[Rfam]
RNA sequence: GAUAACUGGCUUGUGGCGGCCAAGCGCCCAUAGCGACGUCGCUUUUUGAUCCUUCGAUGUCGGCUCUUCCUAUCAUUGAGCAGCAGCGUACUCAAAGUGUCGGAUUGUUCACCCGCUUCAGGGAACGUGAGCUGGGUUUAGACCGUCGUGAGACAGGAACCAGAU
Dot-bracket structure: ........(.(.(.((((((...((.......))...))))))...)).)..........(((((((((((..((.((((.(......).))))...)).(((.(.....).)))....)))))..)..)))).).....(.(((((....))).))...)....